[Rfam]
RNA sequence: AACCACAAUAUCAAUGAAUGGAUUAACUCGUGAUAUGACGUGGCUGUUCCACUUAGGACAAGGACGUGGCAUCCUAUUACCAACCAUCGCACGAAAUUAAUAGGAUGCCUCGUCCUCAUCCUAGGUAGAACAACCACGUCAUCUCACAGGUGAAUUCAUUCAUUGAUAGUGUGGUU
Numbered sequence: 001a002a003c004c005a006c007a008a009u010a011u012c013a014a015u016g017a018a019u020g021g022a023u024u025a026a027c028u029c030g031u032g033a034u035a036u037g038a039c040g041u042g043g044c045u046g047u048u049c050c051a052c053u054u055a056g057g058a059c060a061a062g063g064a065c066g067u068g069g070c071a072u073c074c075u076a077u078u079a080c081c082a083a084c085c086a087u088c089g090c091a092c093g094a095a096a097u098u099a100a101u102a103g104g105a106u107g108c109c110u111c112g113u114c115c116u117c118a119u120c121c122u123a124g125g126u127a128g129a130a131c132a133a134c135c136a137c138g139u140c141a142u143c144u145c146a147c148a149g150g151u152g153a154a155u156u157c158a159u160u161c162a163u164u165g166a167u168a169g170u171g172u173g174g175u176u
Base pairs, nucleotide, nucleotide: 001176002175003174004173005172006171007170009168010167011166012165013164014163015162017160018159019158021156022155023154024153026151027150028149030147031146032145033144035142036141037140038139039138041136042135043134045132046131047130048129051126052125054123055122057120058119063114064113065112069108070107071106072105073104074103075102076101077100078099079098086097087096
Rfam assigns this 176-nucleotide sequence from Oryza sativa to the family "MIR807 microRNA precursor family".
It is one of the family's seed sequences.
Rfam 15.1 lists 1,514 matches to the family in 13 species.
The family's consensus secondary structure was predicted with WAR.
Taxonomically the source falls in Oryza sativa (Eukaryota, Streptophytina, Magnoliopsida, Poaceae).
On this family, see Luo et al., FEBS Lett 2006: "Rice embryogenic calli express a unique set of microRNAs, suggesting regulatory roles of microRNAs in plant post-embryogenic development".